[Rfam]
RNA sequence: GAAUGAAGGAAGCAUGGUAAUGUGCACAAAAAUUGAUUUGGGUCUCUAGCCUUCCCUCUCCCUUUCGGCUUUGAUUUGGGGGCAUUGUUCCGCAACAAAACA
Numbered sequence: 001g002a003a004u005g006a007a008g009g010a011a012g013c014a015u016g017g018u019a020a021u022g023u024g025c026a027c028a029a030a031a032a033u034u035g036a037u038u039u040g041g042g043u044c045u046c047u048a049g050c051c052u053u054c055c056c057u058c059u060c061c062c063u064u065u066c067g068g069c070u071u072u073g074a075u076u077u078g079g080g081g082g083c084a085u086u087g088u089u090c091c092g093c094a095a096c097a098a099a100a101c102a
Base pairs, nucleotide, nucleotide: 012025013024014023015022040085042083043082044081049075051073054068055067
Overview: Shown here is a 102-nucleotide RNA from Rhododendron simsii, a member of the family "Small nucleolar RNA snoR100". Rfam classes the family as an H/ACA-box small nucleolar RNA. The family's consensus secondary structure was predicted with WAR. Its family is annotated with nucleolus and RNA processing in the Gene Ontology. The family has 9 seed sequences and 1,851 matches in Rfam 15.1. NCBI's taxonomy places the organism under Eukaryota, Embryophyta, Ericales, Rhodoreae, Rhododendron.